This 134-nucleotide RNA sequence from Jaculus jaculus belongs to the Rfam family "Small nucleolar RNA SNORA55".

[Rfam]
RNA sequence: GCACUUAAAUCUUUCCCAGGCCCGCUGCUUCAUGCUGUUCUGGGGACGGAUGGCGCUACAGCAGGUGCAGAGAAUAUCCACACGGGUUGUUUUCCAUUUGUCUUGAGGCCUGGAUCUGCAACUCUGCCACAUGU
Number, nucleotide and partner (000 for none) at each position: 001g056002c055003a000004c053005u052006u000007a000008a000009a000010u000011c000012u000013u046014u045015c044016c043017c042018a041019g040020g000021c000022c037023c000024g000025c000026u000027g000028c000029u000030u000031c000032a000033u000034g000035c000036u000037g022038u000039u000040c019041u018042g017043g016044g015045g014046a013047c000048g000049g000050a000051u000052g005053g004054c000055g002056c001057u000058a000059c000060a000061g000062c000063a000064g000065g000066u000067g127068c126069a125070g124071a123072g122073a000074a000075u000076a000077u000078c000079c000080a115081c000082a000083c112084g111085g110086g109087u108088u000089g000090u000091u000092u000093u000094c000095c105096a104097u000098u000099u000100g000101u000102c000103u000104u096105g095106a000107g000108g087109c086110c085111u084112g083113g000114a000115u080116c000117u000118g000119c000120a000121a000122c072123u071124c070125u069126g068127c067128c000129a000130c000131a000132u000133g000134u000
Source information
About the family: ACA55 is a member of the H/ACA class of snoRNA that guide the sites of modification of uridines to pseudouridines. Taxonomically the source falls in Jaculus (Eukaryota, Amniota, Euarchontoglires, Rodentia).